[Rfam]
RNA sequence: CCAGUCCUCCCACAACCAAAGCUUAGCCAGCAGGUUAGUAGUGAAGCCCGGGUGCGACCAAGGUAACGAGGUGUGCGGAGCAAGGGUGGAACGAGAGUGUAGGCCAUUUAUUGAGCCCCGAAAUAUUGUAGAGUGGUGGUCAUUGGAUAAUCAUCGACGGAUGGGAAAGCUGACGGCUUGCUUUGUACCGGAAAGCAGCAGUCUCAGUAACGUUAUGGCAAGUUGCUGCGACACCGCCGGGGUCUGAGAACA
Numbered sequence: 001c002c003a004g005u006c007c008u009c010c011c012a013c014a015a016c017c018a019a020a021g022c023u024u025a026g027c028c029a030g031c032a033g034g035u036u037a038g039u040a041g042u043g044a045a046g047c048c049c050g051g052g053u054g055c056g057a058c059c060a061a062g063g064u065a066a067c068g069a070g071g072u073g074u075g076c077g078g079a080g081c082a083a084g085g086g087u088g089g090a091a092c093g094a095g096a097g098u099g100u101a102g103g104c105c106a107u108u109u110a111u112u113g114a115g116c117c118c119c120g121a122a123a124u125a126u127u128g129u130a131g132a133g134u135g136g137u138g139g140u141c142a143u144u145g146g147a148u149a150a151u152c153a154u155c156g157a158c159g160g161a162u163g164g165g166a167a168a169g170c171u172g173a174c175g176g177c178u179u180g181c182u183u184u185g186u187a188c189c190g191g192a193a194a195g196c197a198g199c200a201g202u203c204u205c206a207g208u209a210a211c212g213u214u215a216u217g218g219c220a221a222g223u224u225g226c227u228g229c230g231a232c233a234c235c236g237c238c239g240g241g242g243u244c245u246g247a248g249a250a251c252a
Base pairs, nucleotide, nucleotide: 014036015035016034017033021031022030023029024221026219027218039094041092042091045087047085048084050081052076053075054074055073057072058071059070062067112246113244115243116242117241118240119239120238136237137236138235139234140233169196170195171194174190175189176188201232202231203230205228206227207226208225209224210223211222
RNA: Group II catalytic intron D1-D4-6